A member of the RNA family "FMN riboswitch aptamer (RFN element)" from Effusibacillus dendaii, 173 nucleotides long. NCBI's taxonomy places the organism under Bacteria, Bacillati, Bacillota, Bacilli, Effusibacillus. A search with the family's covariance model found it, with a score of 84 bits.

RNA sequence: AUAUUCCUUCGGGGCAGGGUGAGACGCAUGUCAAUUCCCGACCGGUGGUAAUGCGCGCAGUCUUUAUUGAUCGAUAGGUGCGUCAGUCCACGAGCCGUUCACGCUAAGCGGGAAGGCAGGAGUUUGGUGAGAUUCCAACACCGACGGUACAGUCCGGAUGAAAGAAGGAGACG
Numbered sequence: 001a002u003a004u005u006c007c008u009u010c011g012g013g014g015c016a017g018g019g020u021g022a023g024a025c026g027c028a029u030g031u032c033a034a035u036u037c038c039c040g041a042c043c044g045g046u047g048g049u050a051a052u053g054c055g056c057g058c059a060g061u062c063u064u065u066a067u068u069g070a071u072c073g074a075u076a077g078g079u080g081c082g083u084c085a086g087u088c089c090a091c092g093a094g095c096c097g098u099u100c101a102c103g104c105u106a107a108g109c110g111g112g113a114a115g116g117c118a119g120g121a122g123u124u125u126g127g128u129g130a131g132a133u134u135c136c137a138a139c140a141c142c143g144a145c146g147g148u149a150c151a152g153u154c155c156g157g158a159u160g161a162a163a164g165a166a167g168g169a170g171a172c173g
Base pairs, nucleotide, nucleotide: 004170005169006168007167008166009165010164017039018038019037041153042152043143044142045091046090047089048088094117095116096115122139124138125137126136127135145156146155147154